RNA sequence: UGGUUUGCGAUGAUGAUAAUAUAAUUCCUCGUUCUGAAUGCCAAUUUUUGGCAUGAUGGAUUGUUUUAUACCAAUUGAACCUGAGCAAAAC
Numbered sequence: 001u002g003g004u005u006u007g008c009g010a011u012g013a014u015g016a017u018a019a020u021a022u023a024a025u026u027c028c029u030c031g032u033u034c035u036g037a038a039u040g041c042c043a044a045u046u047u048u049u050g051g052c053a054u055g056a057u058g059g060a061u062u063g064u065u066u067u068a069u070a071c072c073a074a075u076u077g078a079a080c081c082u083g084a085g086c087a088a089a090a091c
Base pairs, nucleotide, nucleotide: 003091004090006087007086
Dot-bracket structure: ..((.((..............................................................................))..))